[Rfam]
RNA sequence: GGGCUGUGAUGAGUGGUCAAAAGCUCACUAUUGGAGAGGGGUAUCUGCCAAACCUGGUUACGACAAAUUGGGCACUCCAUUCUAUAAUCAUCUGAUCCU
Numbered sequence: 001g002g003g004c005u006g007u008g009a010u011g012a013g014u015g016g017u018c019a020a021a022a023g024c025u026c027a028c029u030a031u032u033g034g035a036g037a038g039g040g041g042u043a044u045c046u047g048c049c050a051a052a053c054c055u056g057g058u059u060a061c062g063a064c065a066a067a068u069u070g071g072g073c074a075c076u077c078c079a080u081u082c083u084a085u086a087a088u089c090a091u092c093u094g095a096u097c098c099u
Base pairs, nucleotide, nucleotide: 001099002098003097014090015089016088017087024036025035026034028033038078039077040076041075042074044072045071055070056069057068058067
RNA: Small nucleolar RNA Z279/snoR105/snoR108